Notes:
The family of this 111-nucleotide RNA sequence from Bacillus methanolicus is "azaaromatic riboswitch aptamer (yjdF RNA)". The source organism's lineage runs through Bacteria, Bacillati, Bacilli, Bacillaceae and Bacillus methanolicus. The match comes from Rfam's covariance-model search (89 bits).
[Rfam]
RNA sequence: AAACGGGUACGUAAAAACACGGUUCGGUUGGUAGUCCGAACGCAUGGUCAUAACUUUGUCCAUGUCAGUAACCUUCCCCCCUCGGGAUGUCCAUCGUUACCCGUAAUACUU
Numbered sequence: 001a002a003a004c005g006g007g008u009a010c011g012u013a014a015a016a017a018c019a020c021g022g023u024u025c026g027g028u029u030g031g032u033a034g035u036c037c038g039a040a041c042g043c044a045u046g047g048u049c050a051u052a053a054c055u056u057u058g059u060c061c062a063u064g065u066c067a068g069u070a071a072c073c074u075u076c077c078c079c080c081c082u083c084g085g086g087a088u089g090u091c092c093a094u095c096g097u098u099a100c101c102c103g104u105a106a107u108a109c110u111u
Base pairs, nucleotide, nucleotide: 004103005102006101007100008099009097010096011095022041023040024039025038026037027036042065043064044063045062046061047060075087076086077085078084